[Rfam]
RNA sequence: UGAGUCGGCUAGAUAAUCGCUGCCUGUGACGAAAAUGAUCAGGGGGAGGAAAGUCCGAGAACCACAGGGCAGGGUGCCAGCUAACGGCUGGGGGGCGCGAGCCUACGACCAGUGCAACAGAGAGCAAACCGCCGAUGGCCUUCGGGCACAGGUAAGGGUGAAAGGGUGCGGUAAGAGCGCACCGCGCGGCUGGUAACAGUUCGUGGCACGGUAAACUCCACCCGGAGCAAGACCAAAUAGGGUUCCUUAAGGUGUGGCCCACAUCGGAACCGGGUAGGUUGCUUGAGCCUAAGAGUGAUCUUAGGCCUAGACGAAUGAUUAUCCACGACAGAACCCGGCUUACCGGCUGACUCAACAA
Dot-bracket structure: ((((((((((.(((((((.((.((((.............)))).))....[[[.[[[.[..((...[[[[.((((((((((.....)))))(((((....)))).)((...((((.............(((((..((.(.....).))..)))..)).......((((((.......))))))(((((((((....))).))))).)...))..))))))))))).....((((......((((((....(((((.]]]]))))))))))).....))))......((((((((....))))))))..........)))))))..........].]]]]]]...))))))))))....

Rfam assigns this 358-nucleotide RNA sequence from Pseudoalteromonas xiamenensis to the family "Bacterial RNase P class A". It scores 317 bits against the family's covariance model. NCBI's taxonomy places the organism under Bacteria, Pseudomonadota, Gammaproteobacteria, Pseudoalteromonadaceae, Pseudoalteromonas.